[Rfam]
RNA sequence: GUGGGUUCGGCUCGACCCCCCGGAGCCGAACCUCAAGACGACCCCCGUCUCCCCCCGACGGGGGUCGUCCCAU
Numbered sequence: 001g002u003g004g005g006u007u008c009g010g011c012u013c014g015a016c017c018c019c020c021c022g023g024a025g026c027c028g029a030a031c032c033u034c035a036a037g038a039c040g041a042c043c044c045c046c047g048u049c050u051c052c053c054c055c056c057g058a059c060g061g062g063g064g065u066c067g068u069c070c071c072a073u
Stems, first nucleotide, its partner, number of pairs: 002035002004032010037069013
Rfam assigns this 73-nucleotide RNA sequence from Polymorphospora rubra to the family "6C RNA". It scores 74 bits against the family's covariance model. The family's RNA type in Rfam is cis-regulatory element.